[Rfam]
RNA: Small Cajal body specific RNA 11
RNA sequence: UUGUCCUGGCCUGUGCGUUCUCCGCUCCCCUGUGCUCGGUUGCGACAGGGGGUGCGGCGGGACACACAGCAAUCUCCCCCUCAGUUUACGAGGGCCGUCCUGACUGUAGGGCUGGCUCUCAGAGGCAGGAGAGGACAAU
Numbered sequence: 001u002u003g004u005c006c007u008g009g010c011c012u013g014u015g016c017g018u019u020c021u022c023c024g025c026u027c028c029c030c031u032g033u034g035c036u037c038g039g040u041u042g043c044g045a046c047a048g049g050g051g052g053u054g055c056g057g058c059g060g061g062a063c064a065c066a067c068a069g070c071a072a073u074c075u076c077c078c079c080c081u082c083a084g085u086u087u088a089c090g091a092g093g094g095c096c097g098u099c100c101u102g103a104c105u106g107u108a109g110g111g112c113u114g115g116c117u118c119u120c121a122g123a124g125g126c127a128g129g130a131g132a133g134g135a136c137a138a139u
Stems, first nucleotide, its partner, number of pairs: 002064007010057002024053003028050006077134002080131003084126004090120007097112006